[Rfam]
RNA sequence: GCACGGGUGGCGAAAUUGGCAGACGCAGUGGAUUUAGGUUCCACCGCCGCAAGGCGUAAGGGUUCAACUCCCUUCCCGUGCA
Numbered sequence: 001g002c003a004c005g006g007g008u009g010g011c012g013a014a015a016u017u018g019g020c021a022g023a024c025g026c027a028g029u030g031g032a033u034u035u036a037g038g039u040u041c042c043a044c045c046g047c048c049g050c051a052a053g054g055c056g057u058a059a060g061g062g063u064u065c066a067a068c069u070c071c072c073u074u075c076c077c078g079u080g081c082a
Stems, first nucleotide, its partner, number of pairs: 001081007010026003028044005058074005

About this RNA
tRNA: an 82-nucleotide RNA from Pajaroellobacter abortibovis. Pairs were carried over by alignment from the consensus structure, which is taken from published work. It is annotated as a transfer RNA. The match comes from Rfam's covariance-model search (52 bits).